Bacterial RNase P class A: a 394-nucleotide sequence from Vibrio aerogenes.
Lineage of the source: Bacteria > Pseudomonadota > Vibrionaceae > Vibrio > Vibrio aerogenes.
[Rfam]
RNA sequence: GGAGUUGACCGGGUAGUCGCUGCUUCAUUGAUGUCCCUUAGCUGAUUCAGCUGGGGAGACUGAUGGAGGGGAGGAAAGUCCGGGCUCUACAGAGCAGGGUGCCAGGUAACACCUGGGGGGCGUGAGCCCACGACAAGUGCAGCAGAGAGAAGACCGCCGAUGGUCAUCAGACCAGGUAAGGGUGAAAGGGUGCGGUAAGAGCGCACCGUGCGGCUGGCAACAGUUCGUAGCAAGGUAAACUCCACCCGGAGCAAGACCAAAUAGGCUUCCGUAUAGCGUUGCUCGCGUUGGGAAGCGGGUAGGUUGCUUGAGCCAGUGAGUGAUUGCUGGCCUAGACGAAUGGCUACUGCCGUCUCAGACGGUACAAAACCCGGCUUACAGGUUGACUCCAGCU
Number, nucleotide and partner (000 for none) at each position: 001g390002g389003a388004g387005u386006u385007g384008a383009c382010c381011g379012g348013g347014u346015a345016g344017u343018c342019g000020c071021u070022g000023c068024u067025u066026c065027a064028u063029u062030g061031a000032u000033g000034u000035c000036c000037c000038u000039u000040a000041g000042c000043u000044g000045a000046u000047u000048c000049a000050g000051c000052u000053g000054g000055g000056g000057a000058g000059a000060c000061u030062g029063a028064u027065g026066g025067a024068g023069g000070g021071g020072a000073g000074g000075a000076a377077a376078g375079u000080c374081c373082g372083g371084g370085c251086u250087c249088u248089a000090c000091a000092g284093a283094g282095c281096a000097g247098g246099g245100u244101g243102c116103c115104a114105g113106g112107u000108a000109a000110c000111a000112c106113c105114u104115g103116g102117g131118g129119g128120g127121c126122g000123u000124g000125a000126g121127c120128c119129c118130a000131c117132g242133a241134c000135a000136a000137g240138u239139g236140c235141a000142g000143c000144a000145g000146a000147g000148a000149g000150a000151a000152g000153a000154c181155c180156g177157c176158c175159g000160a000161u174162g173163g172164u171165c170166a000167u000168c000169a000170g165171a164172c163173c162174a161175g158176g157177u156178a000179a000180g155181g154182g000183u000184g000185a000186a000187a000188g000189g207190g206191u205192g204193c203194g202195g000196u000197a000198a000199g000200a000201g000202c194203g193204c192205a191206c190207c189208g231209u229210g228211c227212g226213g225214c223215u222216g221217g000218c000219a000220a000221c216222a215223g214224u000225u213226c212227g211228u210229a209230g000231c208232a000233a000234g000235g140236u139237a000238a000239a138240c137241u133242c132243c101244a100245c099246c098247c097248g088249g087250a086251g085252c000253a000254a000255g305256a304257c303258c302259a000260a000261a000262u000263a000264g000265g296266c295267u294268u293269c292270c291271g000272u000273a000274u000275a289276g288277c287278g286279u285280u000281g095282c094283u093284c092285g279286c278287g277288u276289u275290g000291g270292g269293a268294a267295g266296c265297g000298g000299g000300u000301a000302g258303g257304u256305u255306g000307c000308u000309u000310g000311a000312g331313c330314c329315a328316g327317u326318g325319a324320g000321u000322g000323a000324u319325u318326g317327c316328u315329g314330g313331c312332c000333u000334a000335g000336a000337c000338g000339a000340a000341u000342g018343g017344c016345u015346a014347c013348u012349g000350c000351c000352g000353u000354c000355u000356c000357a000358g000359a000360c000361g000362g000363u000364a000365c000366a000367a000368a000369a000370c084371c083372c082373g081374g080375c078376u077377u076378a000379c011380a000381g010382g009383u008384u007385g006386a005387c004388u003389c002390c001391a000392g000393c000394u000